[Rfam]
RNA sequence: AGAGUGGUCGCUGAGUUAGAGCUUAACAGCGUAAUCCCACUGCCUGACACGAACGAAAAGG
Numbered sequence: 001a002g003a004g005u006g007g008u009c010g011c012u013g014a015g016u017u018a019g020a021g022c023u024u025a026a027c028a029g030c031g032u033a034a035u036c037c038c039a040c041u042g043c044c045u046g047a048c049a050c051g052a053a054c055g056a057a058a059a060g061g
Stems, first nucleotide, its partner, number of pairs: 004040004009031005014023003

This 61-nucleotide RNA sequence belongs to the Rfam family "cow-rumen-1 RNA".